mir-454 microRNA precursor family: a 102-nucleotide RNA from Bos taurus. Gene Ontology terms of the family: RISC complex and miRNA-mediated post-transcriptional gene silencing. The organism belongs to Bos, within Eukaryota. For this family Rfam cites "The developmental miRNA profiles of zebrafish as determined by small RNA cloning" (Chen et al., Genes Dev, 2005). The family's consensus secondary structure was predicted with RNAalifold.
[Rfam]
RNA sequence: CUGUUUAUUACCAGAUCCUAGAACCCUAUCGAUAUUGUCUCUGCUGUGUAAAUAGCUCUGAGUAGUGCAAUAUUGCUUAUAGGGUUUUGGUGUUUGGGAAGA
Number, nucleotide and partner (000 for none) at each position: 001c000002u000003g000004u000005u000006u000007a000008u000009u000010a000011c000012c000013a000014g000015a000016u000017c000018c000019u000020a088021g087022a086023a085024c084025c083026c082027u081028a080029u079030c075031g074032a073033u072034a071035u070036u069037g068038u067039c000040u000041c065042u064043g063044c062045u061046g000047u000048g000049u000050a000051a000052a000053u000054a000055g000056c000057u000058c000059u000060g000061a045062g044063u043064a042065g041066u000067g038068c037069a036070a035071u034072a033073u032074u031075g030076c000077u000078u000079a029080u028081a027082g026083g025084g024085u023086u022087u021088u020089g000090g000091u000092g000093u000094u000095u000096g000097g000098g000099a000100a000101g000102a000